[Rfam]
RNA: pan motif
RNA sequence: GAGGCGAUAUCCUAAUCGAAUCGCACUCAAGUAAGUGGAUAGUCUACAACUGAAUAAUGAUGUCUAUGUUGGAUUCUGCUCAGAUUCGUAUGAACCGAGACAGAAGG
Numbered sequence: 001g002a003g004g005c006g007a008u009a010u011c012c013u014a015a016u017c018g019a020a021u022c023g024c025a026c027u028c029a030a031g032u033a034a035g036u037g038g039a040u041a042g043u044c045u046a047c048a049a050c051u052g053a054a055u056a057a058u059g060a061u062g063u064c065u066a067u068g069u070u071g072g073a074u075u076c077u078g079c080u081c082a083g084a085u086u087c088g089u090a091u092g093a094a095c096c097g098a099g100a101c102a103g104a105a106g107g
Stems, first nucleotide, its partner, number of pairs: 001028003004024005010019002076103003079099003083095001085094003